[Rfam]
The record is a 127-nucleotide sequence from Geotrypetes seraphini, which matches "Small Cajal body specific RNA 4" in Rfam. The base pairs follow the family's consensus structure, which was predicted with RNAfold.
RNA sequence: ACUGGAGGACUAAGAAAGUUGAGUCUGUGAAGCAGGGCUCUGCUGAUACUAUCCUCCUAAAGUAAAGAGCUGGCGAUGACAGUCGAGUGCAGAGAAGCCUGGAACUGACCCAAGCCAUCUCACACUU
Numbered sequence: 001a002c003u004g005g006a007g008g009a010c011u012a013a014g015a016a017a018g019u020u021g022a023g024u025c026u027g028u029g030a031a032g033c034a035g036g037g038c039u040c041u042g043c044u045g046a047u048a049c050u051a052u053c054c055u056c057c058u059a060a061a062g063u064a065a066a067g068a069g070c071u072g073g074c075g076a077u078g079a080c081a082g083u084c085g086a087g088u089g090c091a092g093a094g095a096a097g098c099c100u101g102g103a104a105c106u107g108a109c110c111c112a113a114g115c116c117a118u119c120u121c122a123c124a125c126u127u
Stems, first nucleotide, its partner, number of pairs: 003059001004057006017044003021040006067121003078110001080107004084101001089098002
Its Rfam clan is "SCARNA4 clan". The literature on the family includes a 2002 paper in EMBO J by Darzacq et al., "Cajal body-specific small nuclear RNAs: a novel class of 2'-O-methylation and pseudouridylation guide RNAs". It is annotated as a small Cajal body RNA.